[Rfam]
RNA sequence: UGGCUGCAAUAAACAUUCAUUGCUGUCGGUGGGUUUCCCAUGGAUACAACUCACCGGUCAAUGAAUGCAAACUGCGGUGCU
Numbered sequence: 001u002g003g004c005u006g007c008a009a010u011a012a013a014c015a016u017u018c019a020u021u022g023c024u025g026u027c028g029g030u031g032g033g034u035u036u037c038c039c040a041u042g043g044a045u046a047c048a049a050c051u052c053a054c055c056g057g058u059c060a061a062u063g064a065a066u067g068c069a070a071a072c073u074g075c076g077g078u079g080c081u
Base pairs, nucleotide, nucleotide: 002080004077005076006075007074008073014067015066016065017064018063019062020061021060022059025058026057027056028055029054030053031052033050034049035048

Shown here is an 81-nucleotide sequence from Clupea harengus, a member of the family "mir-181 microRNA precursor family". A search with the family's covariance model found it, with a score of 65 bits. Lineage of the source: Eukaryota > Vertebrata > Gnathostomata > Actinopterygii > Clupea.